[Rfam]
RNA sequence: AAAGUUGUUGCGGUUAAAACGCUCGUAGUCGGCUCCAGACCUUCAGAGCCUUGAUUCGGGACACUGGGUCAGCUGCUCUUCUCCAAGAGCGCGCCAACUACUGAUGAUAGGGGACGUCGGUCAAUCGUGCCCUGGGCUGUCUCCCCCCCGGGGGAGUCACAGGGUCGUUCAGCGGUCUUCGCGAUCGCGGUUCGGCUCGGCUCGGGGUACCAAUCACCAUGAUUAAACCGUAGUGACCAAAGCACGUCUUUAGACGGGCACGGCACAGCAUGGGACGAAACGCACCGGGCUCGCCUUUUUUUUGCGGGGGCGUGACUCGGUAAAAGCGAAAGGGAUGUUCGAGGGUGACCGAAUUGCUGGGCGAGUGGUGAAAUACGUUGACCCUAGCAAGUCGACCAAAGGCGUAAGCAGUCAUCAAGGGCAUUCCCGUUGAUCAAGAGCGAAAGUUAAGGGUUCGAAGACGAUCAGAUACCGUCGUAGUCUUAACUAUAAAUGAUGCAGACCAGGGAUAGGACAGUGUCCAUCUCGACUCUUCCGGACCUUGGAGAAAUCACGAGUCUAUGGGUUCUGGGGGGAGUAUGGUCGCAAGGCUGAAACUUA
Numbered sequence: 001a002a003a004g005u006u007g008u009u010g011c012g013g014u015u016a017a018a019a020c021g022c023u024c025g026u027a028g029u030c031g032g033c034u035c036c037a038g039a040c041c042u043u044c045a046g047a048g049c050c051u052u053g054a055u056u057c058g059g060g061a062c063a064c065u066g067g068g069u070c071a072g073c074u075g076c077u078c079u080u081c082u083c084c085a086a087g088a089g090c091g092c093g094c095c096a097a098c099u100a101c102u103g104a105u106g107a108u109a110g111g112g113g114a115c116g117u118c119g120g121u122c123a124a125u126c127g128u129g130c131c132c133u134g135g136g137c138u139g140u141c142u143c144c145c146c147c148c149c150g151g152g153g154g155a156g157u158c159a160c161a162g163g164g165u166c167g168u169u170c171a172g173c174g175g176u177c178u179u180c181g182c183g184a185u186c187g188c189g190g191u192u193c194g195g196c197u198c199g200g201c202u203c204g205g206g207g208u209a210c211c212a213a214u215c216a217c218c219a220u221g222a223u224u225a226a227a228c229c230g231u232a233g234u235g236a237c238c239a240a241a242g243c244a245c246g247u248c249u250u251u252a253g254a255c256g257g258g259c260a261c262g263g264c265a266c267a268g269c270a271u272g273g274g275a276c277g278a279a280a281c282g283c284a285c286c287g288g289g290c291u292c293g294c295c296u297u298u299u300u301u302u303u304g305c306g307g308g309g310g311c312g313u314g315a316c317u318c319g320g321u322a323a324a325a326g327c328g329a330a331a332g333g334g335a336u337g338u339u340c341g342a343g344g345g346u347g348a349c350c351g352a353a354u355u356g357c358u359g360g361g362c363g364a365g366u367g368g369u370g371a372a373a374u375a376c377g378u379u380g381a382c383c384c385u386a387g388c389a390a391g392u393c394g395a396c397c398a399a400a401g402g403c404g405u406a407a408g409c410a411g412u413c414a415u416c417a418a419g420g421g422c423a424u425u426c427c428c429g430u431u432g433a434u435c436a437a438g439a440g441c442g443a444a445a446g447u448u449a450a451g452g453g454u455u456c457g458a459a460g461a462c463g464a465u466c467a468g469a470u471a472c473c474g475u476c477g478u479a480g481u482c483u484u485a486a487c488u489a490u491a492a493a494u495g496a497u498g499c500a501g502a503c504c505a506g507g508g509a510u511a512g513g514a515c516a517g518u519g520u521c522c523a524u525c526u527c528g529a530c531u532c533u534u535c536c537g538g539a540c541c542u543u544g545g546a547g548a549a550a551u552c553a554c555g556a557g558u559c560u561a562u563g564g565g566u567u568c569u570g571g572g573g574g575g576a577g578u579a580u581g582g583u584c585g586c587a588a589g590g591c592u593g594a595a596a597c598u599u600a
Stems, first nucleotide, its partner, number of pairs: 011570003019567001021441004028434003332428004336423005344416006350394002354390008365376003402409002446487006456480001460476004498566002501559003505542003510537001512535003516531001519530003545552002572599003581592004
RNA: Eukaryotic small subunit ribosomal RNA, nucleotides 664 to 1263